[Rfam]
RNA sequence: AAUCUCCCAAUCUGCGCGGUUGCACUUGCUUGAAGUAGUGUAAUUGUCGUAAAUGGAGAGAGAAAGGAAACUGAAUUUUAAGAGUAUAACAGAGAGAUCUUCUUAUGGUCUCUCUGUUUCCUCUGAAAUUCUACACUU
Numbered sequence: 001a002a003u004c005u006c007c008c009a010a011u012c013u014g015c016g017c018g019g020u021u022g023c024a025c026u027u028g029c030u031u032g033a034a035g036u037a038g039u040g041u042a043a044u045u046g047u048c049g050u051a052a053a054u055g056g057a058g059a060g061a062g063a064a065a066g067g068a069a070a071c072u073g074a075a076u077u078u079u080a081a082g083a084g085u086a087u088a089a090c091a092g093a094g095a096g097a098u099c100u101u102c103u104u105a106u107g108g109u110c111u112c113u114c115u116g117u118u119u120c121c122u123c124u125g126a127a128a129u130u131c132u133a134c135a136c137u138u
Stems, first nucleotide, its partner, number of pairs: 003067003008062001011059003018045008076128005082123003091115003095111005
Rfam assigns this 138-nucleotide RNA sequence from Phasianus colchicus to the family "Small nucleolar RNA SNORA64/SNORA10 family". Rfam links the family to the GO terms nucleolus and RNA processing. Clan: SNORA64 clan. The family's consensus secondary structure is taken from published work. NCBI's taxonomy places the organism under Eukaryota, Deuterostomia, Euteleostomi, Tetrapoda, Phasianus. For this family Rfam cites "Nucleolar localization signals of box H/ACA small nucleolar RNAs" (Narayanan et al., EMBO J, 1999). From the family's description: This family belongs to the H/ACA class of small nucleolar RNAs (snoRNAs) which act as guides in the the modification of uridines to pseudouridines.